[Rfam]
RNA sequence: AAGUUCCUGACAAUGGCACUGAAAGAAUUCACGGCUGAAUUUGAGGACCGUGGGUCUUUGGUGCCAUCUUCAGUAACUU
Numbered sequence: 001a002a003g004u005u006c007c008u009g010a011c012a013a014u015g016g017c018a019c020u021g022a023a024a025g026a027a028u029u030c031a032c033g034g035c036u037g038a039a040u041u042u043g044a045g046g047a048c049c050g051u052g053g054g055u056c057u058u059u060g061g062u063g064c065c066a067u068c069u070u071c072a073g074u075a076a077c078u079u
Stems, first nucleotide, its partner, number of pairs: 003077003007073004013067006020060004025056002029053006